RNA sequence: CCGUGUUCUGUUCCUGACUCGGCUGGCUGGCGCCCGUCGGUCAGUCACAGAACACGGGA
Numbered sequence: 001c002c003g004u005g006u007u008c009u010g011u012u013c014c015u016g017a018c019u020c021g022g023c024u025g026g027c028u029g030g031c032g033c034c035c036g037u038c039g040g041u042c043a044g045u046c047a048c049a050g051a052a053c054a055c056g057g058g059a
Stems, first nucleotide, its partner, number of pairs: 001057011014044001016042003020039003025034003
RNA: mir-3017 microRNA precursor family
Organism: Aphis gossypii